[Rfam]
Annotation:
azaaromatic riboswitch aptamer (yjdF RNA): a 112-nucleotide RNA from Clostridium acetobutylicum.

RNA sequence: UUAUAAGAAGAUAAAAACACAGUUUGGUUGGUAGUCCAAACGCAUUUAUAUUCAUAUAAAAUAAAUGUCAGUAACCUGCCCUCGCGGGUUGUCCACUCUUCUUAAAAACUUA
Dot-bracket structure: ...((((((((..........((((((........))))))((((((((...........)))))))).........((((....)))).......))))))))........
Lineage of the source: Bacteria > Bacillota > Eubacteriales > Clostridium > Clostridium acetobutylicum.